[Rfam]
RNA: Small nucleolar RNA Z103
Organism: Digitaria exilis
RNA sequence: GAGGAUAUGAUGAUCCUUUCCCCAGAUGAUCGACACUGAUAAUACUGUGCUAUAUUACUAGGGAGAACCAAGCCAGAAUUUUGAUCUUC
Numbered sequence: 001g002a003g004g005a006u007a008u009g010a011u012g013a014u015c016c017u018u019u020c021c022c023c024a025g026a027u028g029a030u031c032g033a034c035a036c037u038g039a040u041a042a043u044a045c046u047g048u049g050c051u052a053u054a055u056u057a058c059u060a061g062g063g064a065g066a067a068c069c070a071a072g073c074c075a076g077a078a079u080u081u082u083g084a085u086c087u088u089c
Stems, first nucleotide, its partner, number of pairs: 001089005